[Rfam]
RNA sequence: CGUAAAACGUAUAGAGCCCUUCAUAUAUCCUCGAUAAUACGGAUCGAAAGUAUCUACCAAAUCACCGGAAAUGAUUUGACUAUGAAGGCGGAUUUCAACGUG
Numbered sequence: 001c002g003u004a005a006a007a008c009g010u011a012u013a014g015a016g017c018c019c020u021u022c023a024u025a026u027a028u029c030c031u032c033g034a035u036a037a038u039a040c041g042g043a044u045c046g047a048a049a050g051u052a053u054c055u056a057c058c059a060a061a062u063c064a065c066c067g068g069a070a071a072u073g074a075u076u077u078g079a080c081u082a083u084g085a086a087g088g089c090g091g092a093u094u095u096c097a098a099c100g101u102g
Base pairs, nucleotide, nucleotide: 018088019087020086021085022084023083024082025081031047032046033045034044035043058078059077060076061075062074063073064072

This 102-nucleotide RNA from Peribacillus asahii belongs to the Rfam family "Purine riboswitch aptamer". The family's consensus secondary structure is taken from published work. From the family's description: Riboswitches are metabolite binding domains within certain messenger RNAs that serve as precision sensors for their corresponding targets. Its family is annotated with purine nucleobase biosynthetic process in the Gene Ontology.